[Rfam]
RNA sequence: GCCUUAUAAAGAUGUAUGAACGCAAGACAGUUUGGCAUCUCCCUUUAAGGCCUUGUUCAAUUAGAAACUUCAAUGACAAGUCUUAUUGUGUGGUAUUUGUCGAAAUGAGAUGAAUUGAAGUGGAAUAGGUUAACCGUUAGACCUUGAAUUGAAAAAUUCUAAAAUUGAUCUCAAAGGUUGUUAUUACUUUUUAGCCUUUUUGAGUAACGGUGGA
Number, nucleotide and partner (000 for none) at each position: 001g051002c050003c049004u048005u047006a046007u000008a044009a000010a040011g039012a038013u037014g036015u035016a000017u034018g033019a032020a031021c030022g028023c000024a000025a000026g000027a000028c022029a000030g021031u020032u019033u018034g017035g015036c014037a013038u012039c011040u010041c000042c000043c000044u008045u000046u006047a005048a004049g003050g002051c001052c000053u000054u000055g000056u000057u000058c000059a000060a000061u000062u000063a000064g000065a000066a000067a121068c120069u119070u118071c117072a116073a115074u114075g000076a000077c000078a000079a000080g000081u110082c109083u108084u107085a106086u105087u104088g000089u000090g000091u000092g101093g100094u000095a000096u000097u000098u000099g000100u093101c092102g000103a000104a087105a086106u085107g084108a083109g082110a081111u000112g000113a000114a074115u073116u072117g071118a070119a069120g068121u067122g000123g000124a000125a000126u000127a144128g143129g142130u141131u140132a000133a211134c210135c209136g208137u207138u206139a165140g131141a130142c129143c128144u127145u000146g159147a158148a157149u156150u155151g000152a000153a000154a000155a150156a149157u148158u147159c146160u000161a000162a000163a000164a000165u139166u000167g000168a000169u000170c204171u203172c202173a201174a200175a197176g196177g195178u194179u193180g000181u000182u000183a000184u000185u000186a000187c000188u000189u000190u000191u000192u000193a179194g178195c177196c176197u175198u000199u000200u174201u173202g172203a171204g170205u000206a138207a137208c136209g135210g134211u133212g000213g000214a000
RNA: IS605-orfB-I RNA